RNA: ALIL pseudoknot
Organism: Methylorubrum extorquens
RNA sequence: CGCGUAUUUUGCCCAGGCGGAGCUCGACCGCCGGUUCCGGUCAUGAUCGCCUUCAUCGACGAUCAUCGUGCGCUCUACGGGGUCGAGCCGAUCUGCAAGGUUCUGCCGAUCGCCCCG
Numbered sequence: 001c002g003c004g005u006a007u008u009u010u011g012c013c014c015a016g017g018c019g020g021a022g023c024u025c026g027a028c029c030g031c032c033g034g035u036u037c038c039g040g041u042c043a044u045g046a047u048c049g050c051c052u053u054c055a056u057c058g059a060c061g062a063u064c065a066u067c068g069u070g071c072g073c074u075c076u077a078c079g080g081g082g083u084c085g086a087g088c089c090g091a092u093c094u095g096c097a098a099g100g101u102u103c104u105g106c107c108g109a110u111c112g113c114c115c116c117g
Base pairs, nucleotide, nucleotide: 016032017031018030019029020028078117079116080115081114082113089112090111092109093108095106096105097104